[Rfam]
A member of the RNA family "Alphaproteobacterial sRNA BjrC1505" from Pseudaminobacter salicylatoxidans, 141 nucleotides long. Taxonomically the source falls in Pseudaminobacter (Bacteria, Pseudomonadati, Pseudomonadota, Phyllobacteriaceae).
RNA sequence: GGCUCGUUAACCGGCCGUUAAGCUUAAGGUUAUUUAAUAAGGGCGUCCAGUUAUCUGGAUUCUUACCGAGUGGCUGGAGCCACUUCGUUUGACGCCUCCCUGUUAACUCUUGAGAGCCGCUUUUCCAGCGGCUCUUUUUUU
Numbered sequence: 001g002g003c004u005c006g007u008u009a010a011c012c013g014g015c016c017g018u019u020a021a022g023c024u025u026a027a028g029g030u031u032a033u034u035u036a037a038u039a040a041g042g043g044c045g046u047c048c049a050g051u052u053a054u055c056u057g058g059a060u061u062c063u064u065a066c067c068g069a070g071u072g073g074c075u076g077g078a079g080c081c082a083c084u085u086c087g088u089u090u091g092a093c094g095c096c097u098c099c100c101u102g103u104u105a106a107c108u109c110u111u112g113a114g115a116g117c118c119g120c121u122u123u124u125c126c127a128g129c130g131g132c133u134c135u136u137u138u139u140u141u
Stems, first nucleotide, its partner, number of pairs: 001044001003042002005013002014038001019036004046059004068085006091104004112136010
Dot-bracket structure: (.((((.....))(....((((..........)))).)..)).).((((......))))........((((((......)))))).....((((......)))).......((((((((((.....)))))))))).....
Annotation
It scores 66 bits against the family's covariance model. Pairs were carried over by alignment from the consensus structure.